[Rfam]
The record is a 271-nucleotide sequence from Oryza punctata, which matches "MIR821 microRNA precursor family" in Rfam. Gene Ontology terms of the family: RISC complex and miRNA-mediated post-transcriptional gene silencing. For this family Rfam cites "Rice embryogenic calli express a unique set of microRNAs, suggesting regulatory roles of microRNAs in plant post-embryogenic development" (Luo et al., FEBS Lett, 2006). NCBI's taxonomy places the organism under Eukaryota, commelinids, Poales, Oryzinae, Oryza.
RNA sequence: GAUUUCAGCUGAAAAAGUCAUCAACAACAAAGUUGUAUAACUCAUCAAGAUCUAUAACUUCUAUUUUGGUCAUUUCUUCAUCCGACAAAGUGAUCGUAACAUAUUCUUAAAAUUUACAUACCUCUCUUAGUUUAUAAAACUAUAAGAGAUAUGUAUAUUUUGUGAACAAUGUUACAAAUCACUUUGUCGGAUGAAGAAAUGACCAAAAUAGAAGUUAUAGAUCUUGAUGAGUUAUACAACUUUGUUGUUGAUGACUUUUUCAGUUGAAAUC
Numbered sequence: 001g002a003u004u005u006c007a008g009c010u011g012a013a014a015a016a017g018u019c020a021u022c023a024a025c026a027a028c029a030a031a032g033u034u035g036u037a038u039a040a041c042u043c044a045u046c047a048a049g050a051u052c053u054a055u056a057a058c059u060u061c062u063a064u065u066u067u068g069g070u071c072a073u074u075u076c077u078u079c080a081u082c083c084g085a086c087a088a089a090g091u092g093a094u095c096g097u098a099a100c101a102u103a104u105u106c107u108u109a110a111a112a113u114u115u116a117c118a119u120a121c122c123u124c125u126c127u128u129a130g131u132u133u134a135u136a137a138a139a140c141u142a143u144a145a146g147a148g149a150u151a152u153g154u155a156u157a158u159u160u161u162g163u164g165a166a167c168a169a170u171g172u173u174a175c176a177a178a179u180c181a182c183u184u185u186g187u188c189g190g191a192u193g194a195a196g197a198a199a200u201g202a203c204c205a206a207a208a209u210a211g212a213a214g215u216u217a218u219a220g221a222u223c224u225u226g227a228u229g230a231g232u233u234a235u236a237c238a239a240c241u242u243u244g245u246u247g248u249u250g251a252u253g254a255c256u257u258u259u260u261c262a263g264u265u266g267a268a269a270u271c
Stems, first nucleotide, its partner, number of pairs: 014258008023249002026246002030242013044228010055217013069203007077195005083189010094177001096175004101170002104166003108162004113157001116154005128142006